[Rfam]
RNA sequence: UAUAACAGAAAGGGGAGCUAGAUGAGUCUGGCUGAGAGGAAGUUCCGAUUGAUACUUCGACCCUAAUACCUGAUCUGGGUAAUGCCAGCGUAGGGAAUGAUUUUGGAUACUAU
Numbered sequence: 001u002a003u004a005a006c007a008g009a010a011a012g013g014g015g016a017g018c019u020a021g022a023u024g025a026g027u028c029u030g031g032c033u034g035a036g037a038g039g040a041a042g043u044u045c046c047g048a049u050u051g052a053u054a055c056u057u058c059g060a061c062c063c064u065a066a067u068a069c070c071u072g073a074u075c076u077g078g079g080u081a082a083u084g085c086c087a088g089c090g091u092a093g094g095g096a097a098u099g100a101u102u103u104u105g106g107a108u109a110c111u112a113u
Base pairs, nucleotide, nucleotide: 009098011064012063013062014061017032018031019030020029021028039058040057041056042055043054069094070093071092072091075088076087077086078085
Rfam assigns this 113-nucleotide RNA sequence from Tepidibacter thalassicus to the family "TPP riboswitch aptamer (THI element)". Taxonomically the source falls in Tepidibacter thalassicus (Bacteria, Bacillati, Peptostreptococcaceae, Tepidibacter). The family's consensus secondary structure is taken from published work.